Pseudomonas sRNA P26: a 57-nucleotide RNA from Thalassotalea piscium. Lineage of the source: Bacteria > Pseudomonadati > Pseudomonadota > Alteromonadales > Thalassotalea. The family's RNA type in Rfam is non-coding RNA gene. Pairs were carried over by alignment from the consensus structure, which was predicted with RNAalifold.

[Rfam]
RNA sequence: UUUAGCAGGUUAACUGCCUGAAAAGGCAAUGGCUGGUGAUUUAAACGUCACCGGCCU
Numbered sequence: 001u002u003u004a005g006c007a008g009g010u011u012a013a014c015u016g017c018c019u020g021a022a023a024a025g026g027c028a029a030u031g032g033c034u035g036g037u038g039a040u041u042u043a044a045a046c047g048u049c050a051c052c053g054g055c056c057u
Stems, first nucleotide, its partner, number of pairs: 015028004031056010
A search with the family's covariance model found it, with a score of 40 bits. Rfam describes the family as follows. This small RNA (sRNA) was computationally identified in the genome of the opportunistic pathogen Pseudomonas aeruginosa and its expression verified by northern blot analysis. P26 is conserved across many Gammaproteobacteria species and appears to be consistently located between the DNA directed RNA polymerase (beta subunit) and 50S ribosomal protein L7/L12 genes.